Annotation:
The family of this 367-nucleotide RNA from Lactobacillus acidophilus is "Bacterial RNase P class B". Its Rfam clan is "RNaseP clan". It is one of the family's seed sequences. Rfam classes the family as a ribozyme. The family's consensus secondary structure is taken from published work.

RNA sequence: AAUUUCGAGUAGGCGCGGCUAGCUUUUGCUAGCUGAGGAAAGUCCACGCACGCACAAGCUGCGAUGCUUGUAGUGAUCGUAUUCAGCUCAAUAAGCUGGAGGAAAGUUAUUUAACUUUUACGGCGGAAAAAGUGCUAAAUCUUUGGACAUGCAUUACUAUCCUGAAAGUGCCACAGUGACGUAGCAAAAUCAGAAAUGAUUUUGGUGGAACGAGGUAAACCCUGCGAGCGUGAAACCCAAAUUUGGUGGGGGAGUUUCGAUCUAAGGAAAUGAACUAAAGAUCGGGUUAUUGCAUUAGCAAUAAAGAUAGAUGACUACUAAUAGUGAUUUUGCCAAGAAUCACUGGAACAAAACGUGGCUUAUAGAA
Numbered sequence: 001a002a003u004u005u006c007g008a009g010u011a012g013g014c015g016c017g018g019c020u021a022g023c024u025u026u027u028g029c030u031a032g033c034u035g036a037g038g039a040a041a042g043u044c045c046a047c048g049c050a051c052g053c054a055c056a057a058g059c060u061g062c063g064a065u066g067c068u069u070g071u072a073g074u075g076a077u078c079g080u081a082u083u084c085a086g087c088u089c090a091a092u093a094a095g096c097u098g099g100a101g102g103a104a105a106g107u108u109a110u111u112u113a114a115c116u117u118u119u120a121c122g123g124c125g126g127a128a129a130a131a132g133u134g135c136u137a138a139a140u141c142u143u144u145g146g147a148c149a150u151g152c153a154u155u156a157c158u159a160u161c162c163u164g165a166a167a168g169u170g171c172c173a174c175a176g177u178g179a180c181g182u183a184g185c186a187a188a189a190u191c192a193g194a195a196a197u198g199a200u201u202u203u204g205g206u207g208g209a210a211c212g213a214g215g216u217a218a219a220c221c222c223u224g225c226g227a228g229c230g231u232g233a234a235a236c237c238c239a240a241a242u243u244u245g246g247u248g249g250g251g252g253a254g255u256u257u258c259g260a261u262c263u264a265a266g267g268a269a270a271u272g273a274a275c276u277a278a279a280g281a282u283c284g285g286g287u288u289a290u291u292g293c294a295u296u297a298g299c300a301a302u303a304a305a306g307a308u309a310g311a312u313g314a315c316u317a318c319u320a321a322u323a324g325u326g327a328u329u330u331u332g333c334c335a336a337g338a339a340u341c342a343c344u345g346g347a348a349c350a351a352a353a354c355g356u357g358g359c360u361u362a363u364a365g366a367a
Stems, first nucleotide, its partner, number of pairs: 004367003007363001008319005014313001016035006040361003044358005049232005054071006077227005082100006101121001102119006122222002125162003132154004140147002168220002170216003185204008236252003256286007287304006322345008